RNA: Betaproteobacteria-1 RNA
RNA sequence: CGCCUGAUUGGUCGGGUAACGGCAGCAAUCAGGGGAAAGCCGCACUGUGGGAUAGCUACGAGGCGCGGUAAGACUGGCGAAGGAAGCGGUCGAUAGCGUAAGGCUUCCGGGU
Numbered sequence: 001c002g003c004c005u006g007a008u009u010g011g012u013c014g015g016g017u018a019a020c021g022g023c024a025g026c027a028a029u030c031a032g033g034g035g036a037a038a039g040c041c042g043c044a045c046u047g048u049g050g051g052a053u054a055g056c057u058a059c060g061a062g063g064c065g066c067g068g069u070a071a072g073a074c075u076g077g078c079g080a081a082g083g084a085a086g087c088g089g090u091c092g093a094u095a096g097c098g099u100a101a102g103g104c105u106u107c108c109g110g111g112u
Base pairs, nucleotide, nucleotide: 001035003033004032005031006030007029008028009027010026022048023047024046025045039069040068041067042066043065055097056096057095058094072091073090074089075088082108083107084106085105086104087103